[Rfam]
About this RNA: The family of this 258-nucleotide sequence from Pseudomonas japonica is "Pseudomonas sRNA P24". About the family: This small RNA (sRNA) was computationally identified in the genome of the opportunistic pathogen Pseudomonas aeruginosa and its expression verified by Northern blot analysis. For this family Rfam cites "Identification of 17 Pseudomonas aeruginosa sRNAs and prediction of sRNA-encoding genes in 10 diverse pathogens using the bioinformatic tool sRNAPredict2" (Livny et al., Nucleic Acids Res, 2006). Pairs were carried over by alignment from the consensus structure, which was predicted with RNAalifold.
RNA sequence: UUGCGCAAGUGGUGUUUUCUUCCGCAAUCUUCGCAAUCCGCUGCCAUCACGGUUUCCCUAUCAUUGUUUCCAGAAUCACUGCCCGGACACAUGUCCACGGCGACCGACCCAAGCAGGACGGUCGCGGCCAGCAAUCCCACAGGGUUGUGCUUGGCCCCCGGGCUGCACGCGGUCCACAAGACAGGCGUGAGGUGAGCCGGCGUCACGAGCGUCGAGCCAGGACAAGUUUCUCGAAGGGCGACCCCAUGGGGUCGCCCU
Number, nucleotide and partner (000 for none) at each position: 001u012002u011003g010004c009005g000006c000007a000008a000009g004010u003011g002012g001013u000014g000015u000016u000017u000018u000019c000020u000021u000022c000023c000024g000025c000026a000027a000028u000029c000030u000031u000032c000033g000034c000035a000036a000037u000038c000039c000040g000041c000042u000043g057044c000045c000046a054047u000048c000049a000050c000051g000052g000053u000054u046055u000056c000057c043058c000059u000060a000061u000062c000063a000064u000065u000066g000067u000068u000069u000070c000071c000072a000073g000074a000075a000076u195077c194078a193079c192080u191081g163082c162083c161084c160085g096086g095087a094088c093089a000090c000091a000092u000093g088094u087095c086096c085097a000098c000099g000100g125101c124102g123103a122104c121105c000106g000107a000108c117109c116110c000111a000112a000113g000114c000115a000116g109117g108118a000119c000120g000121g104122u103123c102124g101125c100126g156127g155128c154129c153130a152131g000132c000133a146134a145135u144136c143137c142138c000139a000140c000141a000142g137143g136144g135145u134146u133147g000148u000149g000150c000151u000152u130153g129154g128155c127156c126157c000158c000159c000160g084161g083162g082163c081164u000165g000166c189167a188168c187169g000170c184171g000172g182173u181174c180175c000176a000177c000178a000179a000180g174181a173182c172183a000184g170185g000186c000187g168188u167189g166190a000191g080192g079193u078194g077195a076196g217197c216198c214199g213200g212201c211202g210203u209204c000205a000206c000207g000208a000209g203210c202211g201212u200213c199214g198215a000216g197217c196218c000219a000220g000221g000222a000223c000224a000225a000226g000227u000228u000229u000230c000231u000232c000233g000234a000235a258236g257237g256238g255239c000240g253241a252242c251243c250244c000245c000246a000247u000248g000249g000250g243251g242252u241253c240254g000255c238256c237257c236258u235